[Rfam]
RNA sequence: CAAGGAUAUGUAGUGAUAUAUAUCUGGUUCAUCAGAAGUCAGCCGAGGCCAUAGUACCUUUUUGUUUAAGGGAAGGGC
Numbered sequence: 001c002a003a004g005g006a007u008a009u010g011u012a013g014u015g016a017u018a019u020a021u022a023u024c025u026g027g028u029u030c031a032u033c034a035g036a037a038g039u040c041a042g043c044c045g046a047g048g049c050c051a052u053a054g055u056a057c058c059u060u061u062u063u064g065u066u067u068a069a070g071g072g073a074a075g076g077g078c
Stems, first nucleotide, its partner, number of pairs: 001026002005024008039046002048078003057071004

Notes
This 78-nucleotide RNA sequence from Pedobacter antarcticus belongs to the Rfam family "Group II catalytic intron D1-D4-1". The pairing is the family consensus, mapped onto this sequence. Rfam's curators write: Group II introns are found in rRNA, tRNA and mRNA of organelles in fungi, plants and protists, and also in mRNA in bacteria.